Source information:
Shown here is a 67-nucleotide sequence from Lederbergia citrea, a member of the family "Bacillaceae-1 RNA". The base pairs follow the family's consensus structure, which is taken from published work.
[Rfam]
RNA sequence: UAAAAAGGAUCCGUCGACUAGAAUCUCCACGUCCUGUGGCAACGUCGACACACCCACAUCCUGUGGG
Number, nucleotide and partner (000 for none) at each position: 001u000002a000003a000004a000005a000006a000007g000008g000009a000010u000011c000012c000013g049014u048015c047016g046017a045018c044019u000020a000021g000022a000023a000024u000025c000026u000027c039028c038029a037030c036031g000032u000033c000034c000035u000036g030037u029038g028039g027040c000041a000042a000043c000044g018045u017046c016047g015048a014049c013050a000051c000052a000053c067054c066055c065056a064057c063058a000059u000060c000061c000062u000063g057064u056065g055066g054067g053
It scores 61 bits against the family's covariance model. Lineage of the source: Bacteria > Bacillota > Caryophanales > Bacillaceae > Lederbergia. Rfam classes the family as a small RNA.